[Rfam]
RNA sequence: GGCCCGGCUCUUGCUGAACUGAUUGCACCGGUAGCCAACGGCGGUUGCCCCACUUAAUCCCGACAAAGACGUCGC
Numbered sequence: 001g002g003c004c005c006g007g008c009u010c011u012u013g014c015u016g017a018a019c020u021g022a023u024u025g026c027a028c029c030g031g032u033a034g035c036c037a038a039c040g041g042c043g044g045u046u047g048c049c050c051c052a053c054u055u056a057a058u059c060c061c062g063a064c065a066a067a068g069a070c071g072u073c074g075c
Stems, first nucleotide, its partner, number of pairs: 030049007